[Rfam]
RNA sequence: UUUUAAGUAUAAGUGUGUCUCAUACACUACUUGGGACAUAUUUAUACUAAAA
Dot-bracket structure: .....(((((((.(((.(((((........).)))).))).)))))))....
Shown here is a 52-nucleotide RNA from Pongo abelii, a member of the family "mir-1302 microRNA precursor family".
Rfam links the family to the GO terms miRNA-mediated post-transcriptional gene silencing and RISC complex.
Lineage of the source: Eukaryota > Eutheria > Boreoeutheria > Ponginae > Pongo.